[Rfam]
RNA sequence: GCGUCCAUAGUCUAAUGGAUAGGACAUAGGUCUUCUAAACCUUUGGUAUAGGUUCAAAUCCUAUUGGACGCA
Numbered sequence: 001g002c003g004u005c006c007a008u009a010g011u012c013u014a015a016u017g018g019a020u021a022g023g024a025c026a027u028a029g030g031u032c033u034u035c036u037a038a039a040c041c042u043u044u045g046g047u048a049u050a051g052g053u054u055c056a057a058a059u060c061c062u063a064u065u066g067g068a069c070g071c072a
Stems, first nucleotide, its partner, number of pairs: 001071007010025004028042004048064005
A member of the RNA family "tRNA", 72 nucleotides long. It is annotated as a transfer RNA. The family's consensus secondary structure is taken from published work. The sequence is in the family's curated seed alignment. Gene Ontology term of the family: triplet codon-amino acid adaptor activity.